The family of this 95-nucleotide RNA from Xylanibacillus composti is "c-di-GMP-I-GGC riboswitch aptamer". Lineage of the source: Bacteria > Bacilli > Caryophanales > Paenibacillaceae > Xylanibacillus.

RNA sequence: CAUGAAAAAGGUAAACUGUGCGAAAGCGCAGGACGCAAAGCUACAGGGGCUUACCCGACGGCGACGUGCCGUUGGCUGCCAGCCAGCCGCCAAGA
Numbered sequence: 001c002a003u004g005a006a007a008a009a010g011g012u013a014a015a016c017u018g019u020g021c022g023a024a025a026g027c028g029c030a031g032g033a034c035g036c037a038a039a040g041c042u043a044c045a046g047g048g049g050c051u052u053a054c055c056c057g058a059c060g061g062c063g064a065c066g067u068g069c070c071g072u073u074g075g076c077u078g079c080c081a082g083c084c085a086g087c088c089g090c091c092a093a094g095a
Stems, first nucleotide, its partner, number of pairs: 003092002011036002016031006034082001040087003046084002048080003

The family's consensus secondary structure is taken from published work.